sodF sRNA: a 90-nucleotide sequence from Streptomyces albiflavescens. Its family is annotated with regulation of mRNA stability, mRNA binding and negative regulation of translation in the Gene Ontology. On this family, see Kim et al., Nucleic Acids Res 2014: "Inverse regulation of Fe- and Ni-containing SOD genes by a Fur family regulator Nur through small RNA processed from 3'UTR of the sodF mRNA". The match comes from Rfam's covariance-model search (88 bits).
[Rfam]
RNA sequence: ACGUCCUGCUCGUGAUCGUCUUCUCACCCUUCACGUGGCAGGCCGAGAAAAGGAGAGCCCCCGCGAGGACCUGACUCGCGGGGGCUCUCC
Numbered sequence: 001a002c003g004u005c006c007u008g009c010u011c012g013u014g015a016u017c018g019u020c021u022u023c024u025c026a027c028c029c030u031u032c033a034c035g036u037g038g039c040a041g042g043c044c045g046a047g048a049a050a051a052g053g054a055g056a057g058c059c060c061c062c063g064c065g066a067g068g069a070c071c072u073g074a075c076u077c078g079c080g081g082g083g084g085c086u087c088u089c090c
Stems, first nucleotide, its partner, number of pairs: 002045002005042006012034004018028001052090016
Record summary: Pairs were carried over by alignment from the consensus structure.